[Rfam]
RNA: MIR6274 microRNA precursor family
RNA sequence: GAAUAACACUGUUUUGUUAUCCCCAACCAAUAACACAAUGAUACGUGAAAAAAUUAUUUCACAUGUCAUUGUGUUAUUAGCUGGGGAUAGCAAACAGUGCUAUAUAUCC
Numbered sequence: 001g002a003a004u005a006a007c008a009c010u011g012u013u014u015u016g017u018u019a020u021c022c023c024c025a026a027c028c029a030a031u032a033a034c035a036c037a038a039u040g041a042u043a044c045g046u047g048a049a050a051a052a053a054u055u056a057u058u059u060c061a062c063a064u065g066u067c068a069u070u071g072u073g074u075u076a077u078u079a080g081c082u083g084g085g086g087a088u089a090g091c092a093a094a095c096a097g098u099g100c101u102a103u104a105u106a107u108c109c
Stems, first nucleotide, its partner, number of pairs: 003107003012097001013094008022085004027080001029078015045062006